The family of this 125-nucleotide sequence from Thermoflavimicrobium dichotomicum is "ylbH leader".
NCBI's taxonomy places the organism under Bacteria, Bacillati, Caryophanales, Thermoactinomycetaceae, Thermoflavimicrobium.
From the family's description: This family is a putative regulatory RNA structure that is found upstream of the ylbH gene in B. subtilis and related low GC Gram-positive bacteria.
For this family Rfam cites "New RNA motifs suggest an expanded scope for riboswitches in bacterial genetic control" (Barrick et al., Proc Natl Acad Sci U S A, 2004).
By type it is a cis-regulatory leader.
[Rfam]
RNA sequence: ACAAAAAAAUGGCUCGCGAAUCCAAGCGCGAGCCUAUGGUAUCUUUCACAAAAUGUGAAAAAUACAAUAUGGGAGAGGAGAAACCGGAGGAAGAGCUUAUGGGGAAACGUAAGUCUUCUCCGUGG
Numbered sequence: 001a002c003a004a005a006a007a008a009a010u011g012g013c014u015c016g017c018g019a020a021u022c023c024a025a026g027c028g029c030g031a032g033c034c035u036a037u038g039g040u041a042u043c044u045u046u047c048a049c050a051a052a053a054u055g056u057g058a059a060a061a062a063u064a065c066a067a068u069a070u071g072g073g074a075g076a077g078g079a080g081a082a083a084c085c086g087g088a089g090g091a092a093g094a095g096c097u098u099a100u101g102g103g104g105a106a107a108c109g110u111a112a113g114u115c116u117u118c119u120c121c122g123u124g125g
Stems, first nucleotide, its partner, number of pairs: 011034008035073001037071002044060006085122004090118004095114005